[Rfam]
RNA sequence: GCGACGGGACGACCCGCCGCCCUUCCCUGACACGACGCGGGACGACCCGC
Numbered sequence: 001g002c003g004a005c006g007g008g009a010c011g012a013c014c015c016g017c018c019g020c021c022c023u024u025c026c027c028u029g030a031c032a033c034g035a036c037g038c039g040g041g042a043c044g045a046c047c048c049g050c
Stems, first nucleotide, its partner, number of pairs: 001020003005016004037050005
Dot-bracket structure: (((.((((....)))).)))................(((((....)))))